[Rfam]
RNA sequence: UUCACACUUUAGGGGUGUCUGCAAUACUGUAGGCUGAGAAUUACCCUCUGAACCUGAUCUAGUUCAUACUAGCGUAGGGAAAAGUAAAUGACUUCCA
Numbered sequence: 001u002u003c004a005c006a007c008u009u010u011a012g013g014g015g016u017g018u019c020u021g022c023a024a025u026a027c028u029g030u031a032g033g034c035u036g037a038g039a040a041u042u043a044c045c046c047u048c049u050g051a052a053c054c055u056g057a058u059c060u061a062g063u064u065c066a067u068a069c070u071a072g073c074g075u076a077g078g079g080a081a082a083a084g085u086a087a088a089u090g091a092c093u094u095c096c097a
Stems, first nucleotide, its partner, number of pairs: 006085005011047004017034005053078004059072004
The family of this 97-nucleotide RNA sequence from Flavobacterium crassostreae is "TPP riboswitch aptamer (THI element)". Its family is annotated with thiamine pyrophosphate binding in the Gene Ontology.